[Rfam]
About this RNA:
A member of the RNA family "Small nucleolar RNA SNORA33" from Nannospalax galili, 130 nucleotides long. From the family's description: ACA33 is a member of the H/ACA class of snoRNA that guide the sites of modification of uridines to pseudouridines.
RNA sequence: AAAACAGCCAACUGAUCUGCUUAUCUGAAUGUGUAUCUGCAGAGAGCUAGAAAAGCUGGCAAUAGUAAGGCCAUGUUACAAGCCUUAAAGACACCUAUAGUCAUUAAGGUCCUUGAGAAUGGCAAUAAUA
Numbered sequence: 001a002a003a004a005c006a007g008c009c010a011a012c013u014g015a016u017c018u019g020c021u022u023a024u025c026u027g028a029a030u031g032u033g034u035a036u037c038u039g040c041a042g043a044g045a046g047c048u049a050g051a052a053a054a055g056c057u058g059g060c061a062a063u064a065g066u067a068a069g070g071c072c073a074u075g076u077u078a079c080a081a082g083c084c085u086u087a088a089a090g091a092c093a094c095c096u097a098u099a100g101u102c103a104u105u106a107a108g109g110u111c112c113u114u115g116a117g118a119a120u121g122g123c124a125a126u127a128a129u130a
Base pairs, nucleotide, nucleotide: 005058006057007056016043017042018041019040020039070123071122072121073120082110083109084108085107086106087105088104090102091101092100

Lineage of the source: Eukaryota > Chordata > Craniata > Rodentia > Nannospalax.